The family of this 73-nucleotide sequence from Gadus morhua is "mir-148/mir-152 microRNA precursor family". Its family is annotated with miRNA-mediated post-transcriptional gene silencing and RISC complex in the Gene Ontology.

[Rfam]
RNA sequence: CCCAAAUAAAGUUCUGUGAUACACUCAGACUGUAAUUGACGGUAGUCAGUGCAUUACAGAACUUUGUUUUGGG
Numbered sequence: 001c002c003c004a005a006a007u008a009a010a011g012u013u014c015u016g017u018g019a020u021a022c023a024c025u026c027a028g029a030c031u032g033u034a035a036u037u038g039a040c041g042g043u044a045g046u047c048a049g050u051g052c053a054u055u056a057c058a059g060a061a062c063u064u065u066g067u068u069u070u071g072g073g
Base pairs, nucleotide, nucleotide: 004069005068006067007066008065009064010063011062012061013060014059015058016057022051023050024049025048028047029046030045031044